[Rfam]
RNA sequence: GGAUGCGGCUCUGGAGAAUCCCGGCUCACCGGGUACCGAAGGUGAAAGGCGGCAUGACCGCUGAAUCUCUCAGGUAAAAGGACAGAGUGAUCUGA
Number, nucleotide and partner (000 for none) at each position: 001g000002g000003a000004u000005g000006c000007g000008g088009c087010u086011c085012u084013g083014g000015a000016g000017a000018a000019u000020c033021c032022c031023g030024g000025c000026u000027c000028a000029c000030c023031g022032g021033g020034u000035a075036c074037c073038g071039a070040a000041g000042g069043u000044g067045a000046a000047a000048g062049g061050c060051g059052g000053c000054a000055u000056g000057a000058c000059c051060g050061c049062u048063g000064a000065a000066u000067c044068u000069c042070u039071c038072a000073g037074g036075u035076a000077a000078a000079a000080g000081g000082a000083c013084a012085g011086a010087g009088u008089g000090a000091u000092c000093u000094g000095a000
The record is a 95-nucleotide RNA from Dysosmobacter segnis, which matches "Glycine riboswitch aptamer" in Rfam.
It scores 60 bits against the family's covariance model.